Record summary: The family of this 122-nucleotide sequence from Comamonas serinivorans is "SAH (S-adenosyl-L-homocysteine) riboswitch aptamer". Rfam links the family to the GO terms S-adenosylhomocysteine metabolic process and regulation of gene expression. On this family, see Wang et al., Mol Cell 2008: "Riboswitches that sense S-adenosylhomocysteine and activate genes involved in coenzyme recycling". Lineage of the source: Bacteria > Pseudomonadati > Betaproteobacteria > Burkholderiales > Comamonas.
[Rfam]
RNA sequence: CGCACCAAGGAGCGCUGCAGUUGGCCCAGGCCUUGCCUGGCCGGGCCUGUCAGGCUUGGUGCGGAACGUGUCGCGCCGGCCACGCCUGCGCUGGCGCGUGGUGUCAACGGCGCUCACCUGUU
Numbered sequence: 001c002g003c004a005c006c007a008a009g010g011a012g013c014g015c016u017g018c019a020g021u022u023g024g025c026c027c028a029g030g031c032c033u034u035g036c037c038u039g040g041c042c043g044g045g046c047c048u049g050u051c052a053g054g055c056u057u058g059g060u061g062c063g064g065a066a067c068g069u070g071u072c073g074c075g076c077c078g079g080c081c082a083c084g085c086c087u088g089c090g091c092u093g094g095c096g097c098g099u100g101g102u103g104u105c106a107a108c109g110g111c112g113c114u115c116a117c118c119u120g121u122u
Stems, first nucleotide, its partner, number of pairs: 002062007021049001023047004